Group II catalytic intron D1-D4-4: a 139-nucleotide RNA from Paenibacillus sp. N3.4. Rfam links the family to the GO term Group II intron splicing. A reference for the family is Lehmann and Schmidt (2003), "Group II introns: structure and catalytic versatility of large natural ribozymes", Crit Rev Biochem Mol Biol. Taxonomically the source falls in Paenibacillus (Bacteria, Bacillati, Bacillota, Paenibacillaceae).

RNA sequence: UAGCCGGUGAAAGUCCGUUCGAGGUAGAGGCCAAACCGCCUCGUAGCUAGCAGGCAGACGUCGGAGAAAUCCGGCGGCUGAAGCCCUGCGAAAAGCUGCGCGAAAGCGCAGUGAAGCAAGAUCAUAGGCCGUAACAUAC
Numbered sequence: 001u002a003g004c005c006g007g008u009g010a011a012a013g014u015c016c017g018u019u020c021g022a023g024g025u026a027g028a029g030g031c032c033a034a035a036c037c038g039c040c041u042c043g044u045a046g047c048u049a050g051c052a053g054g055c056a057g058a059c060g061u062c063g064g065a066g067a068a069a070u071c072c073g074g075c076g077g078c079u080g081a082a083g084c085c086c087u088g089c090g091a092a093a094a095g096c097u098g099c100g101c102g103a104a105a106g107c108g109c110a111g112u113g114a115a116g117c118a119a120g121a122u123c124a125u126a127g128g129c130c131g132u133a134a135c136a137u138a139c
Stems, first nucleotide, its partner, number of pairs: 020043005050089005055080003059076002064071002095112006116132002